RNA sequence: CUGUGGCUUGCCGAGCCGUGCUCCGGUAUGAGAGAUGGCCGAGCACCCGUGUCUCGGGGCAAGGACUGGAGGUGGCAG
Numbered sequence: 001c002u003g004u005g006g007c008u009u010g011c012c013g014a015g016c017c018g019u020g021c022u023c024c025g026g027u028a029u030g031a032g033a034g035a036u037g038g039c040c041g042a043g044c045a046c047c048c049g050u051g052u053c054u055c056g057g058g059g060c061a062a063g064g065a066c067u068g069g070a071g072g073u074g075g076c077a078g
Base pairs, nucleotide, nucleotide: 001078002077003076004075006073007072008071009070016064017063019061020060021059022058023057024056030055031054032053033052035050036049037048038047
RNA: mir-678 microRNA precursor family
Organism: Rattus norvegicus